[Rfam]
RNA sequence: GGUGGGCUAGGCCGGGGGGUUCGGCGUCCCCUGUAACCCGAAACCGCCGAUACGCGGGGGCCGAAGCCGAGGGGAGGCCUGUCAAGCGGGCGGCAGCGGUUCCAGGCACCGCAGAGUCCUCGUCCCGGAGGGCCGGCGGUUAUGGCCGGGCUGCCCGGAGGGGCUGUCCGCCAUAUUAGCCGGGGGGAACGGCCCAGGCCCGGAAGGGAGCAGGCUAACCCCGGACGACCGGCGCUUCCGGGGGUGCGGGGAGGAGGUGCCUGGGGCUUCAAGCCGCCCGUAAGGCAGGUCGACCCGAGGCGUGCCCACC
Numbered sequence: 001g002g003u004g005g006g007c008u009a010g011g012c013c014g015g016g017g018g019g020u021u022c023g024g025c026g027u028c029c030c031c032u033g034u035a036a037c038c039c040g041a042a043a044c045c046g047c048c049g050a051u052a053c054g055c056g057g058g059g060g061c062c063g064a065a066g067c068c069g070a071g072g073g074g075a076g077g078c079c080u081g082u083c084a085a086g087c088g089g090g091c092g093g094c095a096g097c098g099g100u101u102c103c104a105g106g107c108a109c110c111g112c113a114g115a116g117u118c119c120u121c122g123u124c125c126c127g128g129a130g131g132g133c134c135g136g137c138g139g140u141u142a143u144g145g146c147c148g149g150g151c152u153g154c155c156c157g158g159a160g161g162g163g164c165u166g167u168c169c170g171c172c173a174u175a176u177u178a179g180c181c182g183g184g185g186g187g188a189a190c191g192g193c194c195c196a197g198g199c200c201c202g203g204a205a206g207g208g209a210g211c212a213g214g215c216u217a218a219c220c221c222c223g224g225a226c227g228a229c230c231g232g233c234g235c236u237u238c239c240g241g242g243g244g245u246g247c248g249g250g251g252a253g254g255a256g257g258u259g260c261c262u263g264g265g266g267c268u269u270c271a272a273g274c275c276g277c278c279c280g281u282a283a284g285g286c287a288g289g290u291c292g293a294c295c296c297g298a299g300g301c302g303u304g305c306c307c308a309c310c
Stems, first nucleotide, its partner, number of pairs: 001310007010062004014032007037058004066301003071296003076291004082284001086281009098268013112254001117252007124242008132233005137227002139177001141175005147170005153164004180224006191216004199208003